[Rfam]
RNA sequence: CUCGCGGCUAGACGGAAAGACCCCAUGAACCUUUACUGUAAUUUUGUAUUGAAUUUUGAAAUAAUUUGUGUAGAAUAGGUGGGAGAUAAUGAAAUAAAAAUGCUAGUUUUUAUAGAAUCGACUUUGAAAUACCACCCUAAUUUUUUUAAAAUUCUUAUCUUGAUUCGUUAACCGAAUUGGAGAAGAUGCAUGAUGGACAGUUUGACUGGGGCGGUCUCCUCCUAAAAAGUAACGGAGGAGUUCAAAGGUAUGCUAAAUACGGUUGGAAAUCGUAUAUAUAGUGCAAUGGCUUAAGCAUGCUUAACUGCGAGACAUACAAGUCGAGCAGAUACGAAAGUAGGACAUAGUGAUCCGGUGGUACUAUAUGGAAGGGCCAUCGCACAACGAAUAAAAGGUACUCUGGGGAUAACAGGCUAAUUCCCCCCAAGAGUUCAUAUCGACGGGGGAGUUUGGCACCUCGAUGUCGGCUCAUCACAUCCUGGGGCUGAAGUAGGUCCCAAGGGUAUGGCUGUUCGCCAUUUAAAGUGGUACGUGAGCUGGGUUUAAAACGUCGUGAGACAGUUUGGUCCCUAUCUACCGUGAGCGUA
Numbered sequence: 001c002u003c004g005c006g007g008c009u010a011g012a013c014g015g016a017a018a019g020a021c022c023c024c025a026u027g028a029a030c031c032u033u034u035a036c037u038g039u040a041a042u043u044u045u046g047u048a049u050u051g052a053a054u055u056u057u058g059a060a061a062u063a064a065u066u067u068g069u070g071u072a073g074a075a076u077a078g079g080u081g082g083g084a085g086a087u088a089a090u091g092a093a094a095u096a097a098a099a100a101u102g103c104u105a106g107u108u109u110u111u112a113u114a115g116a117a118u119c120g121a122c123u124u125u126g127a128a129a130u131a132c133c134a135c136c137c138u139a140a141u142u143u144u145u146u147u148a149a150a151a152u153u154c155u156u157a158u159c160u161u162g163a164u165u166c167g168u169u170a171a172c173c174g175a176a177u178u179g180g181a182g183a184a185g186a187u188g189c190a191u192g193a194u195g196g197a198c199a200g201u202u203u204g205a206c207u208g209g210g211g212c213g214g215u216c217u218c219c220u221c222c223u224a225a226a227a228a229g230u231a232a233c234g235g236a237g238g239a240g241u242u243c244a245a246a247g248g249u250a251u252g253c254u255a256a257a258u259a260c261g262g263u264u265g266g267a268a269a270u271c272g273u274a275u276a277u278a279u280a281g282u283g284c285a286a287u288g289g290c291u292u293a294a295g296c297a298u299g300c301u302u303a304a305c306u307g308c309g310a311g312a313c314a315u316a317c318a319a320g321u322c323g324a325g326c327a328g329a330u331a332c333g334a335a336a337g338u339a340g341g342a343c344a345u346a347g348u349g350a351u352c353c354g355g356u357g358g359u360a361c362u363a364u365a366u367g368g369a370a371g372g373g374c375c376a377u378c379g380c381a382c383a384a385c386g387a388a389u390a391a392a393a394g395g396u397a398c399u400c401u402g403g404g405g406a407u408a409a410c411a412g413g414c415u416a417a418u419u420c421c422c423c424c425c426a427a428g429a430g431u432u433c434a435u436a437u438c439g440a441c442g443g444g445g446g447a448g449u450u451u452g453g454c455a456c457c458u459c460g461a462u463g464u465c466g467g468c469u470c471a472u473c474a475c476a477u478c479c480u481g482g483g484g485c486u487g488a489a490g491u492a493g494g495u496c497c498c499a500a501g502g503g504u505a506u507g508g509c510u511g512u513u514c515g516c517c518a519u520u521u522a523a524a525g526u527g528g529u530a531c532g533u534g535a536g537c538u539g540g541g542u543u544u545a546a547a548a549c550g551u552c553g554u555g556a557g558a559c560a561g562u563u564u565g566g567u568c569c570c571u572a573u574c575u576a577c578c579g580u581g582a583g584c585g586u587a
Stems, first nucleotide, its partner, number of pairs: 001583007010575003014570002022404004027400002029396005035201004042193002045190004051154011063142004068137001078136005085119003094113008158181003162178006204216004217239006240385001242342002248300006254280002257275006281290002305328004311322003330339003353379007361372002413454003417451001418448007428438002465540001466538004470532001471529005478503002481498006505519005546564004550559003
The record is a 587-nucleotide part of an RNA from Candidatus Zinderia insecticola, which matches "Bacterial large subunit ribosomal RNA" in Rfam. The organism belongs to Candidatus Zinderia insecticola, within Bacteria. Rfam's curators put it in the seed alignment.